[Rfam]
RNA: Bacterial large subunit ribosomal RNA, nucleotides 31 to 629
RNA sequence: CCCGGGCAUUGAGAAGGAAGGACGCUUUCAAAGGCGAAAGGCCAUGGGGAGAGAGAGCGUCUGUGAUCCAUGGAUCUCCGAUCGGGAAACCAUAUCCAAGCUCCGUGGCUAGUCUGCGCUCUUUGGACUUUUCAAACUUAGCGAACUGAAACAUCUCAGUAGCUAAAGGAAGGAAAAUCAACCGAGACCCCGUUAGUAGCGGCGAGCGAGAGCGGAACAAGGGUUUCAAUCCUCAAGCAGUUUCAUUCAAUGUGGAUUGGAUGAUGGAAAAACCAGCUAGCAGCAAGCGUAGGCAGUCUUGCCUUACCACGCCCUACAGAGUUGUACAAAGUCAGCAACCGCUUUGGGGCGCAAGCGUAGGCAACACAGGACUUACGUGGUGGGGCGCGCAGUGAACUUGUUUCAUAAAAGGUUGGAAGAUCUGGCCAAAGAAGGUGAUAGCCCUGUUCAUUCGUUCCCAUGGUUCGAUCCUUCCCAGUAAAACGCGGCGUGUUCGAAUGAUGAUCGCUUUUACGCGAGAAAGGGGGACCACCCUCUAAGCCUAAGUAUUCCUCAAUGACCAAUAGCGUACAAGUACCGUGAGGGAAAGGUGAAAAGAA
Numbered sequence: 001c002c003c004g005g006g007c008a009u010u011g012a013g014a015a016g017g018a019a020g021g022a023c024g025c026u027u028u029c030a031a032a033g034g035c036g037a038a039a040g041g042c043c044a045u046g047g048g049g050a051g052a053g054a055g056a057g058c059g060u061c062u063g064u065g066a067u068c069c070a071u072g073g074a075u076c077u078c079c080g081a082u083c084g085g086g087a088a089a090c091c092a093u094a095u096c097c098a099a100g101c102u103c104c105g106u107g108g109c110u111a112g113u114c115u116g117c118g119c120u121c122u123u124u125g126g127a128c129u130u131u132u133c134a135a136a137c138u139u140a141g142c143g144a145a146c147u148g149a150a151a152c153a154u155c156u157c158a159g160u161a162g163c164u165a166a167a168g169g170a171a172g173g174a175a176a177a178u179c180a181a182c183c184g185a186g187a188c189c190c191c192g193u194u195a196g197u198a199g200c201g202g203c204g205a206g207c208g209a210g211a212g213c214g215g216a217a218c219a220a221g222g223g224u225u226u227c228a229a230u231c232c233u234c235a236a237g238c239a240g241u242u243u244c245a246u247u248c249a250a251u252g253u254g255g256a257u258u259g260g261a262u263g264a265u266g267g268a269a270a271a272a273c274c275a276g277c278u279a280g281c282a283g284c285a286a287g288c289g290u291a292g293g294c295a296g297u298c299u300u301g302c303c304u305u306a307c308c309a310c311g312c313c314c315u316a317c318a319g320a321g322u323u324g325u326a327c328a329a330a331g332u333c334a335g336c337a338a339c340c341g342c343u344u345u346g347g348g349g350c351g352c353a354a355g356c357g358u359a360g361g362c363a364a365c366a367c368a369g370g371a372c373u374u375a376c377g378u379g380g381u382g383g384g385g386c387g388c389g390c391a392g393u394g395a396a397c398u399u400g401u402u403u404c405a406u407a408a409a410a411g412g413u414u415g416g417a418a419g420a421u422c423u424g425g426c427c428a429a430a431g432a433a434g435g436u437g438a439u440a441g442c443c444c445u446g447u448u449c450a451u452u453c454g455u456u457c458c459c460a461u462g463g464u465u466c467g468a469u470c471c472u473u474c475c476c477a478g479u480a481a482a483a484c485g486c487g488g489c490g491u492g493u494u495c496g497a498a499u500g501a502u503g504a505u506c507g508c509u510u511u512u513a514c515g516c517g518a519g520a521a522a523g524g525g526g527g528a529c530c531a532c533c534c535u536c537u538a539a540g541c542c543u544a545a546g547u548a549u550u551c552c553u554c555a556a557u558g559a560c561c562a563a564u565a566g567c568g569u570a571c572a573a574g575u576a577c578c579g580u581g582a583g584g585g586a587a588a589g590g591u592g593a594a595a596a597g598a599a
Stems, first nucleotide, its partner, number of pairs: 001590002005561002007558007014550002016133001020079003023036003042073007051061002084091002093111002096108003112128004137168001138166005148155002178185002188546001190215004199207002220543003227259006266475003271465004392459001394457004400451001410423004427431001433445003481512003485508003522537005577584002
Dot-bracket structure: ((..((((((((((((...((((((........))).....(((((((..((.......)).....)))))))...)))....((....)).((.(((.......))).))((((.........))))....)...((((((.....((....))......))))).).........((....))..(.((((.....((.....))....))))....(((....((((((.....................))))))......(((..((((.....................................................................................................................(.((((..(.........((((......))))...(...).(((.......))).....)..)))).)..)))).......))).....(((.(((..................))).))).........(((((......)))))...)))..)..)).))))))).))...............((....))....)).........